[Rfam]
RNA sequence: GUUGAAAAAGGCAAACUAUUCGAAAGGGUAGGACGCAAAGCUUAGGGUCUAACGUGAUGCACUAUGAUCGCCUGGCUGCCAAUG
Numbered sequence: 001g002u003u004g005a006a007a008a009a010g011g012c013a014a015a016c017u018a019u020u021c022g023a024a025a026g027g028g029u030a031g032g033a034c035g036c037a038a039a040g041c042u043u044a045g046g047g048u049c050u051a052a053c054g055u056g057a058u059g060c061a062c063u064a065u066g067a068u069c070g071c072c073u074g075g076c077u078g079c080c081a082a083u084g
Stems, first nucleotide, its partner, number of pairs: 003081002011036002016031006034070001039077004044073003047068003
Overview:
Rfam assigns this 84-nucleotide RNA sequence from Lentibacillus salicampi to the family "c-di-GMP-I-GGC riboswitch aptamer". The family's consensus secondary structure is taken from published work. The match comes from Rfam's covariance-model search (67 bits). Taxonomically the source falls in Lentibacillus (Bacteria, Bacillota, Caryophanales, Bacillaceae).